The family of this 509-nucleotide RNA sequence from Candidatus Atribacteria bacterium MT.SAG.1 is "Bacterial RNase P class A". It scores 274 bits against the family's covariance model.

[Rfam]
RNA sequence: UAAGUAGAUCAGGUAAUCGCGGAAGAAAUACUAUUUCUUUCGAGGAAAGUCCGAGCUCCACAGGGCAGAGUGCUGGGUAACCCCCAGUGAGGGUAACCUUAAGGAAAGUGCUACAGAAAAUACACAGCUGGGAACUCAAUUUUGAGAACUCAGCAAAGGUGAAAAGGCAGGGUAAGAGCCUACCAGUUGUUAGGUGACUAACAAGCUUAGUAAACCCCACUCGGAGCAAGACCAAAUAGGAAGAGUUGUGGUGGCCCGCUGAAUCUUCGGGUAGGUCGCAAGAGGUGUAAGGUAACUUGCAUCCCAGAUAGAUGAUUACCACCCUUAUAAUUAAUUUGUUAGUUGGUUACUUAGUUAGCUGGUUAAUUAGUUAAUAAAUUAUUAGUAUUAAACUAUCUAACCAGAUAACCUAUCAACUAAUUUGCAUUUUGUAUUUUAAACUAACGACUAUUCACUAACGACUGAUUUUAUAAGGGGACAGAACUCGGCUUAUACGAUCUACUUAUCAA
Numbered sequence: 001u002a003a004g005u006a007g008a009u010c011a012g013g014u015a016a017u018c019g020c021g022g023a024a025g026a027a028a029u030a031c032u033a034u035u036u037c038u039u040u041c042g043a044g045g046a047a048a049g050u051c052c053g054a055g056c057u058c059c060a061c062a063g064g065g066c067a068g069a070g071u072g073c074u075g076g077g078u079a080a081c082c083c084c085c086a087g088u089g090a091g092g093g094u095a096a097c098c099u100u101a102a103g104g105a106a107a108g109u110g111c112u113a114c115a116g117a118a119a120a121u122a123c124a125c126a127g128c129u130g131g132g133a134a135c136u137c138a139a140u141u142u143u144g145a146g147a148a149c150u151c152a153g154c155a156a157a158g159g160u161g162a163a164a165a166g167g168c169a170g171g172g173u174a175a176g177a178g179c180c181u182a183c184c185a186g187u188u189g190u191u192a193g194g195u196g197a198c199u200a201a202c203a204a205g206c207u208u209a210g211u212a213a214a215c216c217c218c219a220c221u222c223g224g225a226g227c228a229a230g231a232c233c234a235a236a237u238a239g240g241a242a243g244a245g246u247u248g249u250g251g252u253g254g255c256c257c258g259c260u261g262a263a264u265c266u267u268c269g270g271g272u273a274g275g276u277c278g279c280a281a282g283a284g285g286u287g288u289a290a291g292g293u294a295a296c297u298u299g300c301a302u303c304c305c306a307g308a309u310a311g312a313u314g315a316u317u318a319c320c321a322c323c324c325u326u327a328u329a330a331u332u333a334a335u336u337u338g339u340u341a342g343u344u345g346g347u348u349a350c351u352u353a354g355u356u357a358g359c360u361g362g363u364u365a366a367u368u369a370g371u372u373a374a375u376a377a378a379u380u381a382u383u384a385g386u387a388u389u390a391a392a393c394u395a396u397c398u399a400a401c402c403a404g405a406u407a408a409c410c411u412a413u414c415a416a417c418u419a420a421u422u423u424g425c426a427u428u429u430u431g432u433a434u435u436u437u438a439a440a441c442u443a444a445c446g447a448c449u450a451u452u453c454a455c456u457a458a459c460g461a462c463u464g465a466u467u468u469u470a471u472a473a474g475g476g477g478a479c480a481g482a483a484c485u486c487g488g489c490u491u492a493u494a495c496g497a498u499c500u501a502c503u504u505a506u507c508a509a
Base pairs, nucleotide, nucleotide: 001505002504003503004502005501006500007499008498009497010496011493012320013319014318015317016316017315018314020042021041022040023039024038025037026036027035028034047491048490049489051488052487053486054485055484056226057225058224059223063257064256065255066254068222069221070220071219072218073087074086075085076084077083088102089100090099091098092097103217104216108215109214110211111210112209125158127154128153129152130151131150132149135146136145137144138143166184167183169181170180171179186206187204188203189202190201191200192199193198230277231276232275233274240268241267242266243265244264249261250260251259252258284303285302286301287300288299289298290297291296

Rfam classes the family as a ribozyme. Ribonuclease P (RNase P) is a ubiquitous endoribonuclease, found in archaea, bacteria and eukarya as well as chloroplasts and mitochondria.